RNA: Group II catalytic intron D1-D4-4
Organism: Ornithinimicrobium ciconiae
RNA sequence: CGGCGGGUGUGAGUCCCGUCCCGGUAGGUGCCGGAGCGCCGGGUAGCAGGUCCCAGUUCGUCAUCGAGAGGUGGCGGGCCAAGCGGGAUGUCAAAAGCCUCUUUGGAGGGAGCAAGUGCGCGGGCCGUAGCGUGA
Numbered sequence: 001c002g003g004c005g006g007g008u009g010u011g012a013g014u015c016c017c018g019u020c021c022c023g024g025u026a027g028g029u030g031c032c033g034g035a036g037c038g039c040c041g042g043g044u045a046g047c048a049g050g051u052c053c054c055a056g057u058u059c060g061u062c063a064u065c066g067a068g069a070g071g072u073g074g075c076g077g078g079c080c081a082a083g084c085g086g087g088a089u090g091u092c093a094a095a096a097g098c099c100u101c102u103u104u105g106g107a108g109g110g111a112g113c114a115a116g117u118g119c120g121c122g123g124g125c126c127g128u129a130g131c132g133u134g135a
Base pairs, nucleotide, nucleotide: 020043021042022041023040024039050089051088052087053086054085056079057078058077059076060075064071065070098109099108100107101106112128113127